[Rfam]
tRNA: an 84-nucleotide RNA from Streptomyces indicus. The base pairs follow the family's consensus structure, which is taken from published work.
RNA sequence: GCGGUCGUGGUGGAAUUGGCAGUCACGCCAGGUUUAGGUCCUGGUGGGAGAAAUCCCGUGAGGGUUCGAGUCCCUCCGACCGCA
Numbered sequence: 001g002c003g004g005u006c007g008u009g010g011u012g013g014a015a016u017u018g019g020c021a022g023u024c025a026c027g028c029c030a031g032g033u034u035u036a037g038g039u040c041c042u043g044g045u046g047g048g049a050g051a052a053a054u055c056c057c058g059u060g061a062g063g064g065u066u067c068g069a070g071u072c073c074c075u076c077c078g079a080c081c082g083c084a
Stems, first nucleotide, its partner, number of pairs: 001083007010026004028044005060076005